[Rfam]
RNA sequence: UACUUGAAUCAAGCUUAUGACCAACUCGAUGAACAAAGUACGCCAGUGCUUCGAGGCGUAUGGUAUUUUCAGCUUUUCUUACUAAGGAUACUUUGUAAGUGAAUCUGUGUGUGUUCAGUGAUGGACAUCCAGAAGGCGGAAACCGCCAACAAAAACAUGCGUCGCAGAAUUGUUUGCAUCAAAAAGUACGGUCCUUCCGGGCGUAGCAAUAGACGCUCACUGUGUGAGAAUAACCCUAAGGGAUGCCGAUUUGGCGAUCGGUACGACAGAGGGAUGCCAAUAAUACGCCUUGCCUUGAGCCGGGAGAAAUCCUGUGUAUAACGGAAGUGGCCGGUAGUAGUAGCCGAAUGGCAUCCUUAACGGGACAGAAUGAUGAUCUGAAUGGACGGUGAAUUUGCAGGUAAUCAACCCUGUACAGGCAAGGGCGCAAGCUGGGGCUAGAAGUUUACGGCCGACGGGCCGUAGGCUCAGACUAGUCUUCCUGUUGACUGAAUAUUGAUGAAAAACAGCUAUGUACGGCGAAGGCCGGGUCAUAAGUUUGAUUGAAG
Numbered sequence: 001u002a003c004u005u006g007a008a009u010c011a012a013g014c015u016u017a018u019g020a021c022c023a024a025c026u027c028g029a030u031g032a033a034c035a036a037a038g039u040a041c042g043c044c045a046g047u048g049c050u051u052c053g054a055g056g057c058g059u060a061u062g063g064u065a066u067u068u069u070c071a072g073c074u075u076u077u078c079u080u081a082c083u084a085a086g087g088a089u090a091c092u093u094u095g096u097a098a099g100u101g102a103a104u105c106u107g108u109g110u111g112u113g114u115u116c117a118g119u120g121a122u123g124g125a126c127a128u129c130c131a132g133a134a135g136g137c138g139g140a141a142a143c144c145g146c147c148a149a150c151a152a153a154a155a156c157a158u159g160c161g162u163c164g165c166a167g168a169a170u171u172g173u174u175u176g177c178a179u180c181a182a183a184a185a186g187u188a189c190g191g192u193c194c195u196u197c198c199g200g201g202c203g204u205a206g207c208a209a210u211a212g213a214c215g216c217u218c219a220c221u222g223u224g225u226g227a228g229a230a231u232a233a234c235c236c237u238a239a240g241g242g243a244u245g246c247c248g249a250u251u252u253g254g255c256g257a258u259c260g261g262u263a264c265g266a267c268a269g270a271g272g273g274a275u276g277c278c279a280a281u282a283a284u285a286c287g288c289c290u291u292g293c294c295u296u297g298a299g300c301c302g303g304g305a306g307a308a309a310u311c312c313u314g315u316g317u318a319u320a321a322c323g324g325a326a327g328u329g330g331c332c333g334g335u336a337g338u339a340g341u342a343g344c345c346g347a348a349u350g351g352c353a354u355c356c357u358u359a360a361c362g363g364g365a366c367a368g369a370a371u372g373a374u375g376a377u378c379u380g381a382a383u384g385g386a387c388g389g390u391g392a393a394u395u396u397g398c399a400g401g402u403a404a405u406c407a408a409c410c411c412u413g414u415a416c417a418g419g420c421a422a423g424g425g426c427g428c429a430a431g432c433u434g435g436g437g438c439u440a441g442a443a444g445u446u447u448a449c450g451g452c453c454g455a456c457g458g459g460c461c462g463u464a465g466g467c468u469c470a471g472a473c474u475a476g477u478c479u480u481c482c483u484g485u486u487g488a489c490u491g492a493a494u495a496u497u498g499a500u501g502a503a504a505a506a507c508a509g510c511u512a513u514g515u516a517c518g519g520c521g522a523a524g525g526c527c528g529g530g531u532c533a534u535a536a537g538u539u540u541g542a543u544u545g546a547a548g
Stems, first nucleotide, its partner, number of pairs: 008544001012540002015537002022530001025055005037050005057161006074103003078099005084093003105132003109128002113126005135147005170529001171509001174506002182497001185496001186490001189333004194327006200289006216228004234273004244263006252279004291353004301314005337394001343390004377472004400412002416484003419433001424432001435481003439476001441474001444468001446465003450461004517528004
ROOL RNA: a 548-nucleotide RNA sequence. The family's RNA type in Rfam is small RNA. Rfam's curators write: Firmicutes, Fusobacteria (1 example), Tenericutes (1 example). Pairs were carried over by alignment from the consensus structure, which is taken from published work.